[Rfam]
RNA sequence: UGUUCUGCACUAAAGUGCUUAUAGUGCAGGUAGUGUGCGGCGAUCUACUGCAGUGUGAGCACUUCAAGUUCAUUACU
Numbered sequence: 001u002g003u004u005c006u007g008c009a010c011u012a013a014a015g016u017g018c019u020u021a022u023a024g025u026g027c028a029g030g031u032a033g034u035g036u037g038c039g040g041c042g043a044u045c046u047a048c049u050g051c052a053g054u055g056u057g058a059g060c061a062c063u064u065c066a067a068g069u070u071c072a073u074u075a076c077u
Stems, first nucleotide, its partner, number of pairs: 006072002009069003013064011025052003029049005